[Rfam]
RNA: Plant signal recognition particle RNA
Organism: Rhododendron williamsianum
RNA sequence: GCUGGGCUUAGUAACGCGAGCCUGUGACUCAAGUGAGAGCAUCAUUGUGGUUGGAGAUUGGCUUGGCCCAGGAGGUAGGCCCUGCGGGGUUAUAAUCUGGCCUGCCCAUUCCAAGUCUGGAGUUGGUUCACGGACUCAGGGCGAAGGCCUUGGGUUCUUGUUCCUUAGAGUGGGGGAAACCGCGUCAGGCUGGUUUCACAGAGCAGCGUCCACCUCCCGCUCCAGUCGGUGGAAGGAUAACGGGCCGGUAUUUCGCAGGGCCAUUGACGCCUCAUGAGCCGCUCUCAAUUCAACAACCACUUUU
Numbered sequence: 001g002c003u004g005g006g007c008u009u010a011g012u013a014a015c016g017c018g019a020g021c022c023u024g025u026g027a028c029u030c031a032a033g034u035g036a037g038a039g040c041a042u043c044a045u046u047g048u049g050g051u052u053g054g055a056g057a058u059u060g061g062c063u064u065g066g067c068c069c070a071g072g073a074g075g076u077a078g079g080c081c082c083u084g085c086g087g088g089g090u091u092a093u094a095a096u097c098u099g100g101c102c103u104g105c106c107c108a109u110u111c112c113a114a115g116u117c118u119g120g121a122g123u124u125g126g127u128u129c130a131c132g133g134a135c136u137c138a139g140g141g142c143g144a145a146g147g148c149c150u151u152g153g154g155u156u157c158u159u160g161u162u163c164c165u166u167a168g169a170g171u172g173g174g175g176g177a178a179a180c181c182g183c184g185u186c187a188g189g190c191u192g193g194u195u196u197c198a199c200a201g202a203g204c205a206g207c208g209u210c211c212a213c214c215u216c217c218c219g220c221u222c223c224a225g226u227c228g229g230u231g232g233a234a235g236g237a238u239a240a241c242g243g244g245c246c247g248g249u250a251u252u253u254c255g256c257a258g259g260g261c262c263a264u265u266g267a268c269g270c271c272u273c274a275u276g277a278g279c280c281g282c283u284c285u286c287a288a289u290u291c292a293a294c295a296a297c298c299a300c301u302u303u304u
Base pairs, nucleotide, nucleotide: 001040002039003038004023005022006021007020008019009018028037029036030035044303047300048299049298050297051296052295053294056291057290058288059287060286061284064281065280066279069276070275072273073272074271075270076269078262079261080260081259082258083257084256085255087253088252089251091250092249097248098247099246100245101244102243103242104241106236107235109234110233111232112231113230115227117225118224119223120222121221122220123219125164126163129160130159132157133156134155135154136153137152138151139150140149141148142147165170172217173216174215175214176213182209183208184207185206190201191200192199